[Rfam]
RNA sequence: GGGGUGUGCAAUAGACUUACCUCUACGUGGUACACCCUGGGCAACGUAUACUAAUACGGCAAAAAGUCUAUA
Numbered sequence: 001g002g003g004g005u006g007u008g009c010a011a012u013a014g015a016c017u018u019a020c021c022u023c024u025a026c027g028u029g030g031u032a033c034a035c036c037c038u039g040g041g042c043a044a045c046g047u048a049u050a051c052u053a054a055u056a057c058g059g060c061a062a063a064a065a066g067u068c069u070a071u072a
Base pairs, nucleotide, nucleotide: 001038002037003036004035005034006033007032019031020030021029045058046057047056048055049054
RNA: HDV ribozyme from F. prausnitzii
Organism: Rodentolepis nana